[Rfam]
The record is a 413-nucleotide RNA sequence from Prosthecochloris sp. CIB 2401, which matches "Bacterial RNase P class A" in Rfam.
Taxonomically the source falls in Prosthecochloris (Bacteria, Pseudomonadati, Chlorobiia, Chlorobiales).
RNA sequence: ACGCUGCAGCGUGCAGUCGCUGUGUACCUUACCAGAGGUAUGCAGAGGAAAGUCCGAACAUCGCAGGACAGGGUGCCGGCCGAGAGCUUAUGCUCAAGUCCGGGAACACAGGGGAAAGCCCUGUGUUACAGCAAGUGCAACAGAAAGCAAACCGCCCCGGCGAUUGCCGGGGUAAGGGUGAAACGGUGGUGUAAGAGACCACCAGGCGUGCCAGCAAUGGUAUGCGCUGGGUAAACCUCCCCGAUGCAAGGCAGAAUAGGGAAGCUUUCUCCUUGGGGAAAAGGGUUGUCCGCCCAAUUCAUAUGAGGGCUUUGCCCUCCGGGAGUUUCCGGGUGUGCCGCAUCAGAUAAAUGACUGCAUACCUGCCUUUGGCCGGCAGGUAACAGAAUUCGGCUUAUAGCUGCAGCGCCUUU
Numbered sequence: 001a002c003g004c005u006g007c008a009g010c011g012u013g014c015a016g017u018c019g020c021u022g023u024g025u026a027c028c029u030u031a032c033c034a035g036a037g038g039u040a041u042g043c044a045g046a047g048g049a050a051a052g053u054c055c056g057a058a059c060a061u062c063g064c065a066g067g068a069c070a071g072g073g074u075g076c077c078g079g080c081c082g083a084g085a086g087c088u089u090a091u092g093c094u095c096a097a098g099u100c101c102g103g104g105a106a107c108a109c110a111g112g113g114g115a116a117a118g119c120c121c122u123g124u125g126u127u128a129c130a131g132c133a134a135g136u137g138c139a140a141c142a143g144a145a146a147g148c149a150a151a152c153c154g155c156c157c158c159g160g161c162g163a164u165u166g167c168c169g170g171g172g173u174a175a176g177g178g179u180g181a182a183a184c185g186g187u188g189g190u191g192u193a194a195g196a197g198a199c200c201a202c203c204a205g206g207c208g209u210g211c212c213a214g215c216a217a218u219g220g221u222a223u224g225c226g227c228u229g230g231g232u233a234a235a236c237c238u239c240c241c242c243g244a245u246g247c248a249a250g251g252c253a254g255a256a257u258a259g260g261g262a263a264g265c266u267u268u269c270u271c272c273u274u275g276g277g278g279a280a281a282a283g284g285g286u287u288g289u290c291c292g293c294c295c296a297a298u299u300c301a302u303a304u305g306a307g308g309g310c311u312u313u314g315c316c317c318u319c320c321g322g323g324a325g326u327u328u329c330c331g332g333g334u335g336u337g338c339c340g341c342a343u344c345a346g347a348u349a350a351a352u353g354a355c356u357g358c359a360u361a362c363c364u365g366c367c368u369u370u371g372g373c374c375g376g377c378a379g380g381u382a383a384c385a386g387a388a389u390u391c392g393g394c395u396u397a398u399a400g401c402u403g404c405a406g407c408g409c410c411u412u413u
Stems, first nucleotide, its partner, number of pairs: 002408009011398001012359007020045009050396003054393005059246004067313002071242003075239001076103004104129001105127009130238002135236002137232002152177002154173008185203006205227001206225008250339004260330006305319005

Ribonuclease P (RNase P) is a ubiquitous endoribonuclease, found in archaea, bacteria and eukarya as well as chloroplasts and mitochondria.
The match comes from Rfam's covariance-model search (224 bits).